[Rfam]
RNA sequence: UACUCAUCGAGAGUGGCGGAGGGAACAGGCCCUGCGAAGCCACGGCAACCGCCGAUACCGAUCGGAAAGGUGCCAAUUCCUGCUCCGGAUGAUCCGGAGAAAGAUGAGAA
Dot-bracket structure: (.((((((....(((((...(((..[[[[)))......)))))((((.((.(((........)))...))))))...(]]]]((((((.....))))))..))))))).)
RNA: SAM riboswitch aptamer (S box leader)
Organism: Geothermobacter ehrlichii